[Rfam]
RNA: Small nucleolar RNA SNORD70
RNA sequence: UUCAUUGUUGUCAAUGAUGUAUUCUUGUUGGAAAUGAAUCUAAGUGAUCUAACAAAUAUUCGUCACUACCACUGAGAUGACAAUGAA
Number, nucleotide and partner (000 for none) at each position: 001u087002u086003c085004a084005u083006u082007g081008u080009u079010g078011u077012c076013a000014a000015u000016g000017a000018u000019g000020u000021a000022u000023u000024c000025u000026u000027g000028u000029u000030g000031g000032a000033a000034a000035u000036g000037a000038a000039u000040c000041u000042a000043a000044g000045u000046g000047a000048u000049c000050u000051a000052a000053c000054a000055a000056a000057u000058a000059u000060u000061c000062g000063u000064c000065a000066c000067u000068a000069c000070c000071a000072c000073u000074g000075a000076g012077a011078u010079g009080a008081c007082a006083a005084u004085g003086a002087a001